[Rfam]
RNA sequence: CCAACGCGGAUACCCUGGGGUCGCUCUCCCAGGCUCUGUCCGGGUGGCGGCGGGAGCGCAGGGCUCUGCCCCGUGACGUACAGUCCCUUUCCACAGCGUCGGAGAUGAAGCCGGGCCCCGAGUCCGCGCCUGCAUAUUCCUACAGCUUCUCAGAGUCCCACGGGCCGUGACUGAGGAGACAAACCAUGCAGGAAACAGUU
Number, nucleotide and partner (000 for none) at each position: 001c102002c101003a000004a099005c098006g097007c096008g041009g040010a039011u038012a037013c000014c033015c032016u031017g026018g025019g024020g000021u000022c000023g000024c019025u018026c017027u000028c000029c000030c000031a016032g015033g014034c000035u000036c000037u012038g011039u010040c009041c008042g000043g000044g094045u093046g092047g091048c000049g000050g000051c000052g087053g086054g085055a084056g081057c000058g079059c078060a000061g074062g000063g000064c000065u000066c000067u000068g000069c000070c000071c000072c000073g000074u061075g000076a000077c000078g059079u058080a000081c056082a000083g000084u055085c054086c053087c052088u000089u000090u000091c047092c046093a045094c044095a000096g007097c006098g005099u004100c000101g002102g001103a000104g000105a000106u000107g000108a000109a000110g000111c000112c000113g000114g000115g000116c000117c000118c000119c000120g000121a000122g000123u000124c000125c000126g000127c000128g000129c192130c191131u190132g189133c188134a187135u186136a000137u000138u000139c000140c000141u000142a000143c000144a000145g000146c178147u177148u176149c175150u174151c173152a000153g000154a000155g165156u164157c163158c162159c000160a000161c000162g158163g157164g156165c155166c000167g000168u000169g000170a000171c000172u000173g151174a150175g149176g148177a147178g146179a000180c000181a000182a000183a000184c000185c000186a135187u134188g133189c132190a131191g130192g129193a000194a000195a000196c000197a000198g000199u000200u000
A member of the RNA family "Small nucleolar RNA SNORA73 family" from Erinaceus europaeus, 200 nucleotides long.
U17 (SNORA73A and SNORA73B) also known as E1 belongs to the H/ACA class of small nucleolar RNAs (snoRNAs). Vertebrate U17 is intron-encoded and ranges in length from 200-230 nucleotides, longer than most snoRNAs.
A search with the family's covariance model found it, with a score of 176 bits.
By type it is an H/ACA-box small nucleolar RNA.
The source organism's lineage runs through Eukaryota, Dipnotetrapodomorpha, Eutheria, Eulipotyphla and Erinaceus.
Rfam 15.1 lists 2,326 matches to the family in 660 species.